[Rfam]
RNA sequence: CAGCAGGAGUUAAACCUGUCGGGGCAAGAGUUAGGAGCCCCGUAGCUUGGAUAGCAGCGUGUAGGGAAACCAAAGCGCUGAAGCCUAUCGACAAGUGCUUCAGAGGAAGCGCGCGAGUUGUCGGGCCGUAACAAAA
Numbered sequence: 001c002a003g004c005a006g007g008a009g010u011u012a013a014a015c016c017u018g019u020c021g022g023g024g025c026a027a028g029a030g031u032u033a034g035g036a037g038c039c040c041c042g043u044a045g046c047u048u049g050g051a052u053a054g055c056a057g058c059g060u061g062u063a064g065g066g067a068a069a070c071c072a073a074a075g076c077g078c079u080g081a082a083g084c085c086u087a088u089c090g091a092c093a094a095g096u097g098c099u100u101c102a103g104a105g106g107a108a109g110c111g112c113g114c115g116a117g118u119u120g121u122c123g124g125g126c127c128g129u130a131a132c133a134a135a136a
Stems, first nucleotide, its partner, number of pairs: 020042005050089005055080006064071002096111006113129003
RNA: Group II catalytic intron D1-D4-4